[Rfam]
RNA sequence: AUGUAAAUAGGCGAUGGUGUUCGCCAUGAAAUGUUAAUCAGAAGAUAACUAAUGACACCUACUAAAAU
Numbered sequence: 001a002u003g004u005a006a007a008u009a010g011g012c013g014a015u016g017g018u019g020u021u022c023g024c025c026a027u028g029a030a031a032u033g034u035u036a037a038u039c040a041g042a043a044g045a046u047a048a049c050u051a052a053u054g055a056c057a058c059c060u061a062c063u064a065a066a067a068u
Stems, first nucleotide, its partner, number of pairs: 010025004016059006033049004

A member of the RNA family "Fluoride riboswitch aptamer (crcB RNA motif)" from Candidatus Enterococcus wittei, 68 nucleotides long. It scores 49 bits against the family's covariance model.